The record is a 154-nucleotide RNA sequence from Sinorhizobium saheli, which matches "speF leader" in Rfam. The family's RNA type in Rfam is cis-regulatory leader. The family's consensus secondary structure was predicted with RNAalifold. Rfam's curators write: This family is a putative regulatory RNA structure that is found upstream of the speF gene encoding ornithine decarboxylase in Agrobacterium tumefaciens and other alpha-proteobacteria. A reference for the family is Corbino et al. (2005), "Evidence for a second class of S-adenosylmethionine riboswitches and other regulatory RNA motifs in alpha-proteobacteria", Genome Biol.
RNA sequence: UGCCGGCUCUCCAACAGCCGGGGUUACUGAAGAGGCACACCUUCAUUGCCGGAAGUGCGGUUGGGUCAUCCCCUCCAAUCCAUGGCAGACAAAGCCGAAUCUUAGCCUUUGCGGGCUUCGAUUCACCGUAACGCGCAGAGAGCGCAUGCAUGGU
Numbered sequence: 001u002g003c004c005g006g007c008u009c010u011c012c013a014a015c016a017g018c019c020g021g022g023g024u025u026a027c028u029g030a031a032g033a034g035g036c037a038c039a040c041c042u043u044c045a046u047u048g049c050c051g052g053a054a055g056u057g058c059g060g061u062u063g064g065g066u067c068a069u070c071c072c073c074u075c076c077a078a079u080c081c082a083u084g085g086c087a088g089a090c091a092a093a094g095c096c097g098a099a100u101c102u103u104a105g106c107c108u109u110u111g112c113g114g115g116c117u118u119c120g121a122u123u124c125a126c127c128g129u130a131a132c133g134c135g136c137a138g139a140g141a142g143c144g145c146a147u148g149c150a151u152g153g154u
Base pairs, nucleotide, nucleotide: 001023003021004020005019006018007017008016034050035049036048037047057134058133059132084096085095104117105116106115107114108113